[Rfam]
RNA sequence: AAACAGUCCCUUGUGUUUUGAUUUUUUGGCAGUUUUGGAUCUCCAAGGCAAAAAAAAAAAAAUUGACACGUGACACCUCACUUAGGGUGUCACGUCAACGUUGACCGAGUUAACAAUGAACUGGGGUCCAAAACUGCCAAAAAAUCAAAACAUAGGGGACUAUUU
Numbered sequence: 001a002a003a004c005a006g007u008c009c010c011u012u013g014u015g016u017u018u019u020g021a022u023u024u025u026u027u028g029g030c031a032g033u034u035u036u037g038g039a040u041c042u043c044c045a046a047g048g049c050a051a052a053a054a055a056a057a058a059a060a061a062a063u064u065g066a067c068a069c070g071u072g073a074c075a076c077c078u079c080a081c082u083u084a085g086g087g088u089g090u091c092a093c094g095u096c097a098a099c100g101u102u103g104a105c106c107g108a109g110u111u112a113a114c115a116a117u118g119a120a121c122u123g124g125g126g127u128c129c130a131a132a133a134c135u136g137c138c139a140a141a142a143a144a145u146c147a148a149a150a151c152a153u154a155g156g157g158g159a160c161u162a163u164u165u
Stems, first nucleotide, its partner, number of pairs: 001165002005161004012154030043124003068095002071092007
Description: Shown here is a 165-nucleotide RNA sequence from Medicago truncatula, a member of the family "MIR2619 microRNA precursor family". The family's consensus secondary structure was predicted with RNAalifold. The match comes from Rfam's covariance-model search (151 bits).